Shown here is a 49-nucleotide RNA from Rubellimicrobium roseum, a member of the family "SAM/SAH riboswitch aptamer".
On this family, see Weickhmann et al., Nucleic Acids Res 2019: "The structure of the SAM/SAH-binding riboswitch".
A search with the family's covariance model found it, with a score of 55 bits.
Its family is annotated with S-adenosylmethionine metabolic process and regulation of gene expression in the Gene Ontology.
RNA sequence: CCCCCGUCACAACGGCUUCCUGGCGUGACGGGCUGACCUCAAUGGAGCG
Numbered sequence: 001c002c003c004c005c006g007u008c009a010c011a012a013c014g015g016c017u018u019c020c021u022g023g024c025g026u027g028a029c030g031g032g033c034u035g036a037c038c039u040c041a042a043u044g045g046a047g048c049g
Stems, first nucleotide, its partner, number of pairs: 004031007013022002015048003019045002